[Rfam]
RNA sequence: GGGAGCGGUUUAUCCCUCCCCGGCUAUAUCAGGCGCGAGCGCCCAUCCACCCCAAGCGCCCAUAUGGCUUUGACCCGUCCGGUUGUCCCCCCGGACGGGUC
Numbered sequence: 001g002g003g004a005g006c007g008g009u010u011u012a013u014c015c016c017u018c019c020c021c022g023g024c025u026a027u028a029u030c031a032g033g034c035g036c037g038a039g040c041g042c043c044c045a046u047c048c049a050c051c052c053c054a055a056g057c058g059c060c061c062a063u064a065u066g067g068c069u070u071u072g073a074c075c076c077g078u079c080c081g082g083u084u085g086u087c088c089c090c091c092c093g094g095a096c097g098g099g100u101c
Base pairs, nucleotide, nucleotide: 001020002019003018004017005016023068024067025066026065027064028063029062032060033059034058035057036056072101073100074099075098076097077096078095079094080093081092082091
Rfam assigns this 101-nucleotide sequence to the family "Rhizobiales-2 RNA". By type it is a small RNA. The base pairs follow the family's consensus structure, which is taken from published work.